[Rfam]
RNA sequence: UAUAUUUGCAAACUCAAUGAAAAAACAUUGACAUACAUAAUAAUCAUUUAAAUAAUAUUGGCAUG
Numbered sequence: 001u002a003u004a005u006u007u008g009c010a011a012a013c014u015c016a017a018u019g020a021a022a023a024a025a026c027a028u029u030g031a032c033a034u035a036c037a038u039a040a041u042a043a044u045c046a047u048u049u050a051a052a053u054a055a056u057a058u059u060g061g062c063a064u065g
Stems, first nucleotide, its partner, number of pairs: 014031006
RNA: S15-Flavobacteria ribosomal protein leader